[Rfam]
RNA sequence: CGCCGAGUCGCUGCCCGCAGCGAUCCGGGGACCCACCGCAGCACUGGGGUGAAUCCCGCCCGGGCACGUGCCCGGCCGGGUAGGGCGUCUUCCCGCCCGAAUCCGUCAGCUAACCCGGUAGGCGGCCACGGAAGA
Numbered sequence: 001c002g003c004c005g006a007g008u009c010g011c012u013g014c015c016c017g018c019a020g021c022g023a024u025c026c027g028g029g030g031a032c033c034c035a036c037c038g039c040a041g042c043a044c045u046g047g048g049g050u051g052a053a054u055c056c057c058g059c060c061c062g063g064g065c066a067c068g069u070g071c072c073c074g075g076c077c078g079g080g081u082a083g084g085g086c087g088u089c090u091u092c093c094c095g096c097c098c099g100a101a102u103c104c105g106u107c108a109g110c111u112a113a114c115c116c117g118g119u120a121g122g123c124g125g126c127c128a129c130g131g132a133a134g135a
Stems, first nucleotide, its partner, number of pairs: 001124004008023006025118005034046002047104003055080004083098004
RNA: c-di-AMP riboswitch aptamer (ydaO/yuaA leader)
Organism: Modestobacter roseus